[Rfam]
This 72-nucleotide sequence from Chelonoidis abingdonii belongs to the Rfam family "Small nucleolar RNA SNORD73". Lineage of the source: Eukaryota > Vertebrata > Durocryptodira > Chelonoidis > Chelonoidis nigra species complex. Rfam links the family to the GO terms RNA processing and nucleolus.
RNA sequence: AAUGAAUGAUGACAGCAUGUUUCGGUCCCAUAUGACACUGAAUGAUUAUACUCUUUCCACUUUUCUGACAUU
Numbered sequence: 001a002a003u004g005a006a007u008g009a010u011g012a013c014a015g016c017a018u019g020u021u022u023c024g025g026u027c028c029c030a031u032a033u034g035a036c037a038c039u040g041a042a043u044g045a046u047u048a049u050a051c052u053c054u055u056u057c058c059a060c061u062u063u064u065c066u067g068a069c070a071u072u
Stems, first nucleotide, its partner, number of pairs: 001072004